[Rfam]
RNA: U5 spliceosomal RNA
RNA sequence: ACACUCAUGUUUCUUUUCAUAGCGUAUAAAUCUUUCGCCUUUUACUAAAGAUUUCCGUGGAGAGGAACACCAUGAGUAUAAUUUAAUUUUUUUGAUGCUUUGCUUAAUUGCGGAGCU
Numbered sequence: 001a002c003a004c005u006c007a008u009g010u011u012u013c014u015u016u017u018c019a020u021a022g023c024g025u026a027u028a029a030a031u032c033u034u035u036c037g038c039c040u041u042u043u044a045c046u047a048a049a050g051a052u053u054u055c056c057g058u059g060g061a062g063a064g065g066a067a068c069a070c071c072a073u074g075a076g077u078a079u080a081a082u083u084u085a086a087u088u089u090u091u092u093u094g095a096u097g098c099u100u101u102g103c104u105u106a107a108u109u110g111c112g113g114a115g116c117u
Stems, first nucleotide, its partner, number of pairs: 003077004009068011028054008095117001097116006